Rfam assigns this 376-nucleotide RNA from Desulfuromonas thiophila to the family "Bacterial RNase P class A". The source organism's lineage runs through Bacteria, Pseudomonadati, Desulfuromonadales, Desulfuromonadaceae and Desulfuromonas.
[Rfam]
RNA sequence: CGAAGAAGCACAGGCGAUCGCCGGUUUCGCCUGCGAAACGGGAGGAAAGUCCGGGCUCCGCAGGACAGGAUGGUUCCUAACGGGAACCGGGGGUGACCCCAGGGACAGUGCCACAGAGAGCAGACCGCCGUGCAUGGCACGGUAAGGGUGAAAGGGUGAGGUAAGAGCUCACCAGCGGUUCUGGUGACAGAGCCGGCUCGGUAAACCCCAUCCGGAGCAAGGCCGCAUAGGGAAGCGCUUGAGGGUGGUCCGCCCGAAGCUUCCGGGUUGGCUGCUUGAGGCCGUCGGCAACGGCGGUCCUAGAGGAAUGAUCGCCCAUCGUCGAGCCGGUAACGGCUGACGGGGACAGAACCCGGCUUAUGGGCUUCUUCGACCU
Numbered sequence: 001c002g003a004a005g006a007a008g009c010a011c012a013g014g015c016g017a018u019c020g021c022c023g024g025u026u027u028c029g030c031c032u033g034c035g036a037a038a039c040g041g042g043a044g045g046a047a048a049g050u051c052c053g054g055g056c057u058c059c060g061c062a063g064g065a066c067a068g069g070a071u072g073g074u075u076c077c078u079a080a081c082g083g084g085a086a087c088c089g090g091g092g093g094u095g096a097c098c099c100c101a102g103g104g105a106c107a108g109u110g111c112c113a114c115a116g117a118g119a120g121c122a123g124a125c126c127g128c129c130g131u132g133c134a135u136g137g138c139a140c141g142g143u144a145a146g147g148g149u150g151a152a153a154g155g156g157u158g159a160g161g162u163a164a165g166a167g168c169u170c171a172c173c174a175g176c177g178g179u180u181c182u183g184g185u186g187a188c189a190g191a192g193c194c195g196g197c198u199c200g201g202u203a204a205a206c207c208c209c210a211u212c213c214g215g216a217g218c219a220a221g222g223c224c225g226c227a228u229a230g231g232g233a234a235g236c237g238c239u240u241g242a243g244g245g246u247g248g249u250c251c252g253c254c255c256g257a258a259g260c261u262u263c264c265g266g267g268u269u270g271g272c273u274g275c276u277u278g279a280g281g282c283c284g285u286c287g288g289c290a291a292c293g294g295c296g297g298u299c300c301u302a303g304a305g306g307a308a309u310g311a312u313c314g315c316c317c318a319u320c321g322u323c324g325a326g327c328c329g330g331u332a333a334c335g336g337c338u339g340a341c342g343g344g345g346a347c348a349g350a351a352c353c354c355g356g357c358u359u360a361u362g363g364g365c366u367u368c369u370u371c372g373a374c375c376u
Stems, first nucleotide, its partner, number of pairs: 001372009011363001012361001013316007021042002024039006047359003051356005056217004063251004068213005073087005088102001089100004103208002108206002110202003125147002127143007155173006175197001176195008221273004231264006243255004280299008